[Rfam]
About this RNA: This 67-nucleotide sequence belongs to the Rfam family "L2-Alphaproteobacteria ribosomal protein leader". It is annotated as a cis-regulatory leader. The base pairs follow the family's consensus structure, which is taken from published work. The literature on the family includes a 2020 paper in BMC Microbiol by Eckert and Weinberg, "Discovery of 20 novel ribosomal leader candidates in bacteria and archaea". It is one of the family's seed sequences.
RNA sequence: GGGCACCUAAGGGGGCCUAUAACCAAAGAGAACUUUUUCUCUUAAUAUAGCAAACGGAAGACAGCAA
Numbered sequence: 001g002g003g004c005a006c007c008u009a010a011g012g013g014g015g016c017c018u019a020u021a022a023c024c025a026a027a028g029a030g031a032a033c034u035u036u037u038u039c040u041c042u043u044a045a046u047a048u049a050g051c052a053a054a055c056g057g058a059a060g061a062c063a064g065c066a067a
Stems, first nucleotide, its partner, number of pairs: 001018004006014003027042005